[Rfam]
RNA sequence: AUACUGCACGAUUCGUGUGGGUGAGAUCCUGCGUUCAGGUUCGAGCCGAGCGAAGCGAGACAGCAACGCGAACGCGUUGACCCGAAGGGCGAGGCCAACGGCCGAGUCAUCCCGCACGACCAUGAA
Numbered sequence: 001a002u003a004c005u006g007c008a009c010g011a012u013u014c015g016u017g018u019g020g021g022u023g024a025g026a027u028c029c030u031g032c033g034u035u036c037a038g039g040u041u042c043g044a045g046c047c048g049a050g051c052g053a054a055g056c057g058a059g060a061c062a063g064c065a066a067c068g069c070g071a072a073c074g075c076g077u078u079g080a081c082c083c084g085a086a087g088g089g090c091g092a093g094g095c096c097a098a099c100g101g102c103c104g105a106g107u108c109a110u111c112c113c114g115c116a117c118g119a120c121c122a123u124g125a126a
Stems, first nucleotide, its partner, number of pairs: 015117007022109001032091002035089002040086004047057002064079006
RNA: RtT RNA
Organism: Yersinia ruckeri